[Rfam]
Nucleotides: 132
Stems, first nucleotide, its partner, number of pairs: 002068005008062001012059002019045008077121004082117003088114003092110005
Number, partner (000 for none) and nucleotide at each position: 001000g002068g003067c004066g005065u006064u007000g008062c009000u010000g011000c012059u013058c014000c015000a016000c017000a018000u019045a020044g021043a022042a023041a024040c025039g026038c027000c028000g029000a030000g031000g032000u033000a034000u035000a036000u037000u038026g039025c040024g041023u042022u043021u044020c045019u046000g047000u048000u049000g050000a051000c052000a053000u054000a055000g056000c057000a058013g059012g060000u061000a062008g063000a064006a065005a066004c067003g068002c069000c070000g071000a072000g073000g074000u075000u076000c077121c078120c079119u080118g081000c082117g083116u084115u085000u086000c087000u088114g089113g090112a091000a092110a093109c094108g095107c096106c097000g098000c099000u100000a101000u102000u103000g104000u105000u106096g107095g108094c109093g110092u111000u112090u113089c114088u115084g116083g117082c118080c119079a120078g121077g122000c123000u124000g125000c126000a127000a128000a129000c130000g131000c132000a

Shown here is a 132-nucleotide RNA sequence from Triticum aestivum, a member of the family "Small nucleolar RNA SNORA64/SNORA10 family". The match comes from Rfam's covariance-model search (36 bits). This family belongs to the H/ACA class of small nucleolar RNAs (snoRNAs) which act as guides in the the modification of uridines to pseudouridines. The family has 9 seed sequences and 703 matches in Rfam 15.1. Rfam classes the family as an H/ACA-box small nucleolar RNA. The family is grouped with related families in Rfam's "SNORA64 clan".